The family of this 74-nucleotide RNA from Anabas testudineus is "Small nucleolar RNA SNORD99". The family's consensus secondary structure was predicted with RNAalifold. Rfam 15.1 lists 673 matches to the family in 613 species.
RNA sequence: UCUGAUCAGUGAUGACCAUUUAACUCUAUGUGGACUGAUGGAUGAAGCUUGCGGAUAUGGGACUGAGAUCAGCC
Numbered sequence: 001u002c003u004g005a006u007c008a009g010u011g012a013u014g015a016c017c018a019u020u021u022a023a024c025u026c027u028a029u030g031u032g033g034a035c036u037g038a039u040g041g042a043u044g045a046a047g048c049u050u051g052c053g054g055a056u057a058u059g060g061g062a063c064u065g066a067g068a069u070c071a072g073c074c
Base pairs, nucleotide, nucleotide: 002072003071004070005069